[Rfam]
RNA sequence: UUAGUCAACGGUAAAUGUCUGACCGAAACGAAGUGAAGGGAAUUUAAGGAGUUGACUAAUUGAGCUAA
Numbered sequence: 001u002u003a004g005u006c007a008a009c010g011g012u013a014a015a016u017g018u019c020u021g022a023c024c025g026a027a028a029c030g031a032a033g034u035g036a037a038g039g040g041a042a043u044u045u046a047a048g049g050a051g052u053u054g055a056c057u058a059a060u061u062g063a064g065c066u067a068a
Stems, first nucleotide, its partner, number of pairs: 001059009

Overview:
The record is a 68-nucleotide RNA from Rummeliibacillus sp. TYF005, which matches "Bacillus-plasmid RNA" in Rfam. The family has 31 seed sequences and 155 matches in Rfam 15.1. The family's consensus secondary structure is taken from published work. The family's RNA type in Rfam is small RNA.